[Rfam]
RNA sequence: GCGUCUUGCCCUUCCUGGGCGUUUCCUCCCUAUAGACUUUCAUGGCCGCGCCGGUAUGGCGCGGCCUUUUUUUCGUUCCGC
Numbered sequence: 001g002c003g004u005c006u007u008g009c010c011c012u013u014c015c016u017g018g019g020c021g022u023u024u025c026c027u028c029c030c031u032a033u034a035g036a037c038u039u040u041c042a043u044g045g046c047c048g049c050g051c052c053g054g055u056a057u058g059g060c061g062c063g064g065c066c067u068u069u070u071u072u073u074c075g076u077u078c079c080g081c
Stems, first nucleotide, its partner, number of pairs: 008020004044066009
Makes More Granules Regulator RNA (mmgR): an 81-nucleotide RNA from Brevundimonas goettingensis. Rfam describes the family as follows. SuhB later renamed mmgR (makes more granules regulator) was a putative non-coding RNA found multiple times in the Agrobacterium tumefaciens genome and related alpha-proteobacteria. Other non-coding RNAs uncovered in the same analysis include: speF, ybhL, metA, and serC.Several studies inSinorhizobium meliloti showed that suhB element is indeed a non-coding RNA:firstly it was detected on Northern blot and called Sm8RNA, secondly in an RNAseq study referred to as SmelC689.The mutant phenotype's (strain lacking the small RNA) cytoplasm contains higher content of polyhydroxybutyrate (PBH)storage granules than wild type strain. The sRNA is required to limit the PBH intracellular accumulation when the nitrogen-fixing Sinorhizobium meliloti is under condition of surplus carbon in relation to nitrogen. It has been renamed to mmgR. Further study confirmed that mmgR fine-tunes the regulation of PBH storage.Northern blot confirmed the expression of the sRNA in other rhizobia species. MmgR homologues were found in most alpha-proteobacteria. Taxonomically the source falls in Brevundimonas (Bacteria, Pseudomonadati, Caulobacterales, Caulobacteraceae). The family's RNA type in Rfam is small RNA. For this family Rfam cites "Expression of the small regulatory RNA gene mmgR is regulated negatively by AniA and positively by NtrC in Sinorhizobium meliloti 2011" (Ceizel Borella et al., Microbiology, 2018).